The family of this 306-nucleotide RNA from Carica papaya is "Plant signal recognition particle RNA". On this family, see Wild et al., Curr Opin Struct Biol 2002: "Towards the structure of the mammalian signal recognition particle". The base pairs follow the family's consensus structure, which is taken from published work. The family's RNA type in Rfam is non-coding RNA gene. NCBI's taxonomy places the organism under Eukaryota, Euphyllophyta, Spermatophyta, Brassicales, Carica. The sequence is in the family's curated seed alignment.
RNA sequence: GCCGGGCCUGGCAACGCGGGCUUGUCACCCAAGUGGGGGCAUUAAGAUGGUUGGAGGUUGGAUAGGUCCAGAAGGUUGGGCUUCGAAGGGAUUAAAAAUCUGACCCGCCCGUUCCAAGAGGAGAGUUGAGUUGCGUGCCCUCCAGCGUAGGCUUGGGGCUCGCCUCUCUUAGAGCGGAGGGGACCGCGUGAGGCUGGAAACAGAGCAACGAAAACCUCCCGCUCUCUUCAGUGGAAGGAUUACGGGCCGGUGCUCAUCAGGUCCAUUAACGCCUGAUGGACCCUCCACAAUUCAACAACCAUCUUU
Numbered sequence: 001g002c003c004g005g006g007c008c009u010g011g012c013a014a015c016g017c018g019g020g021c022u023u024g025u026c027a028c029c030c031a032a033g034u035g036g037g038g039g040c041a042u043u044a045a046g047a048u049g050g051u052u053g054g055a056g057g058u059u060g061g062a063u064a065g066g067u068c069c070a071g072a073a074g075g076u077u078g079g080g081c082u083u084c085g086a087a088g089g090g091a092u093u094a095a096a097a098a099u100c101u102g103a104c105c106c107g108c109c110c111g112u113u114c115c116a117a118g119a120g121g122a123g124a125g126u127u128g129a130g131u132u133g134c135g136u137g138c139c140c141u142c143c144a145g146c147g148u149a150g151g152c153u154u155g156g157g158g159c160u161c162g163c164c165u166c167u168c169u170u171a172g173a174g175c176g177g178a179g180g181g182g183a184c185c186g187c188g189u190g191a192g193g194c195u196g197g198a199a200a201c202a203g204a205g206c207a208a209c210g211a212a213a214a215c216c217u218c219c220c221g222c223u224c225u226c227u228u229c230a231g232u233g234g235a236a237g238g239a240u241u242a243c244g245g246g247c248c249g250g251u252g253c254u255c256a257u258c259a260g261g262u263c264c265a266u267u268a269a270c271g272c273c274u275g276a277u278g279g280a281c282c283c284u285c286c287a288c289a290a291u292u293c294a295a296c297a298a299c300c301a302u303c304u305u306u
Stems, first nucleotide, its partner, number of pairs: 001040003004023007028037003044305010056293002058290003061285002065281001068279003073274004078264006085258002090255002095251001100250003104246004109238002112236005118229009128168003133163003137159005144153003169174001176219005187210003194203003